[Rfam]
RNA sequence: UGUCGGAGGGAGAAUUCGACUAGGCUUUAUUAUAUCAGUCAGUCUUUUUCUCUCUCCUAUA
Number, nucleotide and partner (000 for none) at each position: 001u061002g060003u059004c000005g057006g056007a055008g054009g000010g052011a051012g050013a049014a000015u000016u000017c000018g044019a043020c042021u041022a000023g000024g039025c038026u037027u000028u000029a000030u000031u000032a000033u000034a000035u000036c000037a026038g025039u024040c000041a021042g020043u019044c018045u000046u000047u000048u000049u013050c012051u011052c010053u000054c008055u007056c006057c005058u000059a003060u002061a001
Shown here is a 61-nucleotide sequence from Pieris macdunnoughi, a member of the family "mir-14 microRNA precursor family". The literature on the family includes a 2009 paper in BMC Genomics by Li et al., "Direct sequencing and expression analysis of a large number of miRNAs in Aedes aegypti and a multi-species survey of novel mosquito miRNAs". The family's consensus secondary structure was predicted with RNAalifold. A search with the family's covariance model found it, with a score of 60 bits.